[Rfam]
RNA sequence: GAAGAAGAGCACAGGGUGGAUGCCUUGGCACUAAGAGCCGAUGAAAGACGUGAUAAGCUGCGAUAAGCUGCGGUGAGGAGCAAAUAUCCAUUGACCCGCAGAUUUCUGAAUGGGGAAACCCGGCUGAGCAAACCUCAGUCACUGUAUGGUGAAUCCAUAGCCAUGCAGAGGGAACCCGGGGAACUGAAACAUCUAAGUACCCGGAGGAAAAGAAAGAAACAUCGAUUUCCUAAGUAGCGGCGAGCGAACGGGAAAGAGCCUAAACCAUUGUAUUUAUACAAUGGGGUUAUGGACCACAUAAUGUGAGUCGUAUGGUAGCAGAACGGUUUUGGGAAAGCCGGCCAUAGAGAGUGAAAGCCUCGUAUGCGAAACCAGAAGACAGCAAGUGGAAUCCAAAGUACCGCGGGACACGUGAAAUCCUGCGGGAAGUCGGGGGGACCACCCCCCAAGGCUAAAUACUACUUAGUGACCGAUAGCGCAUAGUACUGUGAAGGAAAGGUGAAAAGAACCCCGGGAGGGGAGUGAAAGAGAACCUGAAACCCUGUGUUUACAAG
Numbered sequence: 001g002a003a004g005a006a007g008a009g010c011a012c013a014g015g016g017u018g019g020a021u022g023c024c025u026u027g028g029c030a031c032u033a034a035g036a037g038c039c040g041a042u043g044a045a046a047g048a049c050g051u052g053a054u055a056a057g058c059u060g061c062g063a064u065a066a067g068c069u070g071c072g073g074u075g076a077g078g079a080g081c082a083a084a085u086a087u088c089c090a091u092u093g094a095c096c097c098g099c100a101g102a103u104u105u106c107u108g109a110a111u112g113g114g115g116a117a118a119c120c121c122g123g124c125u126g127a128g129c130a131a132a133c134c135u136c137a138g139u140c141a142c143u144g145u146a147u148g149g150u151g152a153a154u155c156c157a158u159a160g161c162c163a164u165g166c167a168g169a170g171g172g173a174a175c176c177c178g179g180g181g182a183a184c185u186g187a188a189a190c191a192u193c194u195a196a197g198u199a200c201c202c203g204g205a206g207g208a209a210a211a212g213a214a215a216g217a218a219a220c221a222u223c224g225a226u227u228u229c230c231u232a233a234g235u236a237g238c239g240g241c242g243a244g245c246g247a248a249c250g251g252g253a254a255a256g257a258g259c260c261u262a263a264a265c266c267a268u269u270g271u272a273u274u275u276a277u278a279c280a281a282u283g284g285g286g287u288u289a290u291g292g293a294c295c296a297c298a299u300a301a302u303g304u305g306a307g308u309c310g311u312a313u314g315g316u317a318g319c320a321g322a323a324c325g326g327u328u329u330u331g332g333g334a335a336a337g338c339c340g341g342c343c344a345u346a347g348a349g350a351g352u353g354a355a356a357g358c359c360u361c362g363u364a365u366g367c368g369a370a371a372c373c374a375g376a377a378g379a380c381a382g383c384a385a386g387u388g389g390a391a392u393c394c395a396a397a398g399u400a401c402c403g404c405g406g407g408a409c410a411c412g413u414g415a416a417a418u419c420c421u422g423c424g425g426g427a428a429g430u431c432g433g434g435g436g437g438a439c440c441a442c443c444c445c446c447c448a449a450g451g452c453u454a455a456a457u458a459c460u461a462c463u464u465a466g467u468g469a470c471c472g473a474u475a476g477c478g479c480a481u482a483g484u485a486c487u488g489u490g491a492a493g494g495a496a497a498g499g500u501g502a503a504a505a506g507a508a509c510c511c512c513g514g515g516a517g518g519g520g521a522g523u524g525a526a527a528g529a530g531a532a533c534c535u536g537a538a539a540c541c542c543u544g545u546g547u548u549u550a551c552a553a554g
Base pairs, nucleotide, nucleotide: 007549008548009547010546011545012544013543014542015541016540022534023499024498027471028470029468030467031466032465033464034463035462036460037459038171039170046107047106048105049062050061051060068101069100070099071098072097073096077089078088079087112121113120114119122140123139124138125137126136127135128134142168143167144166145165146164147163148162149161150160175206176204177203178202179201180200186193187192216223217222226456227254228253229252230251231250237245238244257453258452259451260450265284266283267282268281269280270279271278290395291394292393294389295388296387297386304382307380308379309378311376313374314373315372316371318367319366320365324340325339326338327337329336343347349361350360351359401425402424403423404422405421406420407419408418432447433446434445435444436443486493487492509520510519511518512517
A member of the RNA family "Bacterial large subunit ribosomal RNA" from Herbinix luporum, 554 nucleotides of a longer RNA.
The base pairs follow the family's consensus structure, which is taken from published work.
The family is grouped with related families in Rfam's "LSU clan".